[Rfam]
RNA sequence: GGCCAGGAGGAAAGAAACAGUAUAGAUUAAAACAUAUAGUAUGGGCAAGCAGGGAACUAGAACGAUUCGCAGUUAACCCUGACC
Dot-bracket structure: ((.((((......................................................................)))).))